wcaG RNA: a 98-nucleotide sequence. It is one of the family's seed sequences.

[Rfam]
RNA sequence: CAUGGUUUCCUGCUUCCUUAAAGAGCAGGUGGUGCGGAUGGAGUUUACUCCCGCCUGGUUUCUUGUUUCCAGUUAAAGAACAAGUGGCGAGCCUAGGG
Numbered sequence: 001c002a003u004g005g006u007u008u009c010c011u012g013c014u015u016c017c018u019u020a021a022a023g024a025g026c027a028g029g030u031g032g033u034g035c036g037g038a039u040g041g042a043g044u045u046u047a048c049u050c051c052c053g054c055c056u057g058g059u060u061u062c063u064u065g066u067u068u069c070c071a072g073u074u075a076a077a078g079a080a081c082a083a084g085u086g087g088c089g090a091g092c093c094u095a096g097g098g
Base pairs, nucleotide, nucleotide: 009029010028011027012026013025014024016023039053040052041051043049055072056071057070058069062084063083064082065081066080067079